Shown here is an 88-nucleotide RNA sequence from Pogona vitticeps, a member of the family "mir-204 microRNA precursor family". Rfam links the family to the GO terms miRNA-mediated post-transcriptional gene silencing and RISC complex. Lineage of the source: Eukaryota > Tetrapoda > Acrodonta > Amphibolurinae > Pogona. It scores 61 bits against the family's covariance model. The base pairs follow the family's consensus structure, which was predicted with RNAalifold. A reference for the family is Chen et al. (2005), "The developmental miRNA profiles of zebrafish as determined by small RNA cloning", Genes Dev.

RNA sequence: UUCGGCUCUGUGGUUUUCCCUUUGUCAUCCUAUGCCUGGAAGGUGUGCAAAGGCUGGGACGGUAAAGGGAAGCCCACGGGGCUGUGGA
Dot-bracket structure: ................((((((.((..(((((.((((.............)))))))))..)).))))))..................
Numbered sequence: 001u002u003c004g005g006c007u008c009u010g011u012g013g014u015u016u017u018c019c020c021u022u023u024g025u026c027a028u029c030c031u032a033u034g035c036c037u038g039g040a041a042g043g044u045g046u047g048c049a050a051a052g053g054c055u056g057g058g059a060c061g062g063u064a065a066a067g068g069g070a071a072g073c074c075c076a077c078g079g080g081g082c083u084g085u086g087g088a
Stems, first nucleotide, its partner, number of pairs: 017070006024063002028059005034054004